Shown here is a 110-nucleotide RNA from Oryza sativa, a member of the family "MIR1428 microRNA precursor family". Taxonomically the source falls in Oryza sativa (Eukaryota, Euphyllophyta, Petrosaviidae, Poaceae). Rfam 15.1 lists 96 matches to the family in 9 species. Its family is annotated with RISC complex and miRNA-mediated post-transcriptional gene silencing in the Gene Ontology.
RNA sequence: AGGUCUCGUGAAUUCACAGGACAUAUCUUGUGGUAUGAACUAAGUACGUGAUGAUUUAUGGUGUGUAUUGGGGGCUUACCAUAAGAUAAGGCUGUGAAUUUGCGAAACUU
Numbered sequence: 001a002g003g004u005c006u007c008g009u010g011a012a013u014u015c016a017c018a019g020g021a022c023a024u025a026u027c028u029u030g031u032g033g034u035a036u037g038a039a040c041u042a043a044g045u046a047c048g049u050g051a052u053g054a055u056u057u058a059u060g061g062u063g064u065g066u067a068u069u070g071g072g073g074g075c076u077u078a079c080c081a082u083a084a085g086a087u088a089a090g091g092c093u094g095u096g097a098a099u100u101u102g103c104g105a106a107a108c109u110u
Base pairs, nucleotide, nucleotide: 002109003108004107006105007104008103009102010101011100012099013098014097015096016095019093020092024088025087026086027085028084029083030082031081032080033079034078035077037075040072041071043069044068045067046066048064049063050062